[Rfam]
RNA sequence: GGCUCGCCCAGGUACAGUGAUGUUUACAACUAAUUGAUUACAACCAGUUACAGAUUUCUUAGUUCGUUCUCUACCCACAUUGCUUCACUUGACUAGCCUUAG
Numbered sequence: 001g002g003c004u005c006g007c008c009c010a011g012g013u014a015c016a017g018u019g020a021u022g023u024u025u026a027c028a029a030c031u032a033a034u035u036g037a038u039u040a041c042a043a044c045c046a047g048u049u050a051c052a053g054a055u056u057u058c059u060u061a062g063u064u065c066g067u068u069c070u071c072u073a074c075c076c077a078c079a080u081u082g083c084u085u086c087a088c089u090u091g092a093c094u095a096g097c098c099u100u101a102g
Stems, first nucleotide, its partner, number of pairs: 001098004006093001008091001010090002016081004022076001028064003032060002

Y RNA: a 102-nucleotide RNA sequence from Pongo abelii. Rfam classes the family as a non-coding RNA gene. The organism belongs to Pongo, within Eukaryota.